Source information
The family of this 139-nucleotide RNA sequence from Thermincola carboxydiphila is "c-di-AMP riboswitch aptamer (ydaO/yuaA leader)". It scores 106 bits against the family's covariance model.

RNA sequence: UUACUUACAGCGCUGAAUUCUUUGGUAAAAAGAAGCGGAGGAACCAACCUUUUGGGGUGAAUCCCACAACCAUUGUGGGUAGGGUCAUCUGUCGACCCGAAUCCGUCAGCUAACUUCGCAAGCGUGGACAGGAAGAGGU
Numbered sequence: 001u002u003a004c005u006u007a008c009a010g011c012g013c014u015g016a017a018u019u020c021u022u023u024g025g026u027a028a029a030a031a032g033a034a035g036c037g038g039a040g041g042a043a044c045c046a047a048c049c050u051u052u053u054g055g056g057g058u059g060a061a062u063c064c065c066a067c068a069a070c071c072a073u074u075g076u077g078g079g080u081a082g083g084g085u086c087a088u089c090u091g092u093c094g095a096c097c098c099g100a101a102u103c104c105g106u107c108a109g110c111u112a113a114c115u116u117c118g119c120a121a122g123c124g125u126g127g128a129c130a131g132g133a134a135g136a137g138g139u
Stems, first nucleotide, its partner, number of pairs: 011124004018034005035119006045054002055104003063079004082098004